[Rfam]
RNA sequence: UAGUGAUGACAGGAAGAGUAAUCGGAACCACACAACGGUCCUUGUGACUGACAAACACGUUCUGAGGAAAGUCCCUGGACCAGCGGCUGAAAGAGUCGGCACAUCGGAGUGCUCAGUCAGGGUUAAAGACUGUAUGGUAGCCUGUUGGGUAGGCCAAGACAUCCUCGGAUGGAGCAGCGCCUGACAGGUCCCUGAUGUUCGUCCAAUCACAGUAACGCUCUAAAAACAGGACAGGGCUUACCCCGUCAAUCACU
Numbered sequence: 001u002a003g004u005g006a007u008g009a010c011a012g013g014a015a016g017a018g019u020a021a022u023c024g025g026a027a028c029c030a031c032a033c034a035a036c037g038g039u040c041c042u043u044g045u046g047a048c049u050g051a052c053a054a055a056c057a058c059g060u061u062c063u064g065a066g067g068a069a070a071g072u073c074c075c076u077g078g079a080c081c082a083g084c085g086g087c088u089g090a091a092a093g094a095g096u097c098g099g100c101a102c103a104u105c106g107g108a109g110u111g112c113u114c115a116g117u118c119a120g121g122g123u124u125a126a127a128g129a130c131u132g133u134a135u136g137g138u139a140g141c142c143u144g145u146u147g148g149g150u151a152g153g154c155c156a157a158g159a160c161a162u163c164c165u166c167g168g169a170u171g172g173a174g175c176a177g178c179g180c181c182u183g184a185c186a187g188g189u190c191c192c193u194g195a196u197g198u199u200c201g202u203c204c205a206a207u208c209a210c211a212g213u214a215a216c217g218c219u220c221u222a223a224a225a226a227c228a229g230g231a232c233a234g235g236g237c238u239u240a241c242c243c244c245g246u247c248a249a250u251c252a253c254u
Stems, first nucleotide, its partner, number of pairs: 002254006008247003015221005022065007036050005069239003073236004085097004114132005136191002141188010153175002161170003
RNA: RNase MRP